PreQ1 (pre queuosine) riboswitch aptamer: a 44-nucleotide RNA from Paenibacillus nuruki. The organism belongs to Paenibacillus, within Bacteria. For this family Rfam cites "Identification of four genes necessary for biosynthesis of the modified nucleoside queuosine" (Reader et al., J Biol Chem, 2004).

RNA sequence: GCGGGAGAGGUUCGCGAACUCCCUCUAUAAAAAACUAUCAAUCC
Numbered sequence: 001g002c003g004g005g006a007g008a009g010g011u012u013c014g015c016g017a018a019c020u021c022c023c024u025c026u027a028u029a030a031a032a033a034a035c036u037a038u039c040a041a042u043c044c
Stems, first nucleotide, its partner, number of pairs: 006026005016036001

It scores 42 bits against the family's covariance model.